A member of the RNA family "Small nucleolar RNA snoR2/U65" from Nicotiana attenuata, 156 nucleotides long. By type it is an H/ACA-box small nucleolar RNA. Rfam links the family to the GO terms nucleolus and RNA processing. Clan: SNORA65 clan. The organism belongs to Nicotiana, within Eukaryota.
[Rfam]
RNA sequence: GGUCCGAUGCCACGUCGGCGGUAGCAAAAAAAAUAGCAGUGACCGGCGAUGCUAUGAUUGGACCAACAUCAAGUUUUUUUGACGCUUCGCAUUUUGAUAGGAAUCUGUGGAUGAAUAUUUGGUUUUUCCACAGAGCCGUUUUGUGCGAUUACAUUU
Numbered sequence: 001g002g003u004c005c006g007a008u009g010c011c012a013c014g015u016c017g018g019c020g021g022u023a024g025c026a027a028a029a030a031a032a033a034u035a036g037c038a039g040u041g042a043c044c045g046g047c048g049a050u051g052c053u054a055u056g057a058u059u060g061g062a063c064c065a066a067c068a069u070c071a072a073g074u075u076u077u078u079u080u081g082a083c084g085c086u087u088c089g090c091a092u093u094u095u096g097a098u099a100g101g102a103a104u105c106u107g108u109g110g111a112u113g114a115a116u117a118u119u120u121g122g123u124u125u126u127u128c129c130a131c132a133g134a135g136c137c138g139u140u141u142u143g144u145g146c147g148a149u150u151a152c153a154u155u156u
Base pairs, nucleotide, nucleotide: 002063003062004061005060006059007058008057009055013051014050015049016048017047020044021043022042024037025036087148088147089146090145091144100137101136105133106132107131109129110128111127113125